[Rfam]
RNA sequence: ACUGCUUGGUGGUGGCAUUUCCCGACUCCGCGGGCGAUGUAACUGUGCGUAUCUAAUUGCAUGCAAGUUUCUCGAAGCCCGCUCCCGUAGCGGGCUUUUUUGU
Numbered sequence: 001a002c003u004g005c006u007u008g009g010u011g012g013u014g015g016c017a018u019u020u021c022c023c024g025a026c027u028c029c030g031c032g033g034g035c036g037a038u039g040u041a042a043c044u045g046u047g048c049g050u051a052u053c054u055a056a057u058u059g060c061a062u063g064c065a066a067g068u069u070u071c072u073c074g075a076a077g078c079c080c081g082c083u084c085c086c087g088u089a090g091c092g093g094g095c096u097u098u099u100u101u102g103u
Stems, first nucleotide, its partner, number of pairs: 009046004015040005021034004076096007
The family of this 103-nucleotide RNA sequence from Pseudidiomarina taiwanensis is "Tryptophan operon leader". About the family: At least 6 amino acid operons are known to be regulated by attenuation. In each a leader sequence of 150-200 bp is found upstream of the first gene in the operon. A search with the family's covariance model found it, with a score of 50 bits. By type it is a cis-regulatory leader. The source organism's lineage runs through Bacteria, Pseudomonadati, Pseudomonadota, Alteromonadales and Pseudidiomarina. A reference for the family is Kolter and Yanofsky (1982), "Attenuation in amino acid biosynthetic operons", Annu Rev Genet.